TD-2 RNA: a 94-nucleotide RNA sequence from Treponema pedis. Rfam 15.1 lists 310 matches to the family in 11 species.
RNA sequence: UCCGCCAUGGACGGCGGCGGUUCAAGCUUGCAAGUUUUGCUUAUGCAAAACUUGCUAUCAACAUCCGUACAAGGAAGUACGGAUGUUGAUGACA
Numbered sequence: 001u002c003c004g005c006c007a008u009g010g011a012c013g014g015c016g017g018c019g020g021u022u023c024a025a026g027c028u029u030g031c032a033a034g035u036u037u038u039g040c041u042u043a044u045g046c047a048a049a050a051c052u053u054g055c056u057a058u059c060a061a062c063a064u065c066c067g068u069a070c071a072a073g074g075a076a077g078u079a080c081g082g083a084u085g086u087u088g089a090u091g092a093c094a
Stems, first nucleotide, its partner, number of pairs: 002017005031054010057090014

A search with the family's covariance model found it, with a score of 60 bits.